The record is an 81-nucleotide RNA sequence from Caenorhabditis elegans, which matches "mir-232 microRNA precursor family" in Rfam. Its family is annotated with miRNA-mediated post-transcriptional gene silencing and RISC complex in the Gene Ontology. The base pairs follow the family's consensus structure, which was predicted with RNAalifold. NCBI's taxonomy places the organism under Eukaryota, Protostomia, Ecdysozoa, Rhabditomorpha, Caenorhabditis. For this family Rfam cites "Repertoire and evolution of miRNA genes in four divergent nematode species" (de Wit et al., Genome Res, 2009).

RNA sequence: UUUUGGAUCCCUGCAGUUUCGAUGAUUUUAUCCUUAAUUCUGAAGAUGUGAUAAAUGCAUCUUAACUGCGGUGAUCUAGAU
Numbered sequence: 001u002u003u004u005g006g007a008u009c010c011c012u013g014c015a016g017u018u019u020c021g022a023u024g025a026u027u028u029u030a031u032c033c034u035u036a037a038u039u040c041u042g043a044a045g046a047u048g049u050g051a052u053a054a055a056u057g058c059a060u061c062u063u064a065a066c067u068g069c070g071g072u073g074a075u076c077u078a079g080a081u
Stems, first nucleotide, its partner, number of pairs: 003079007011071008021061003027055006033048001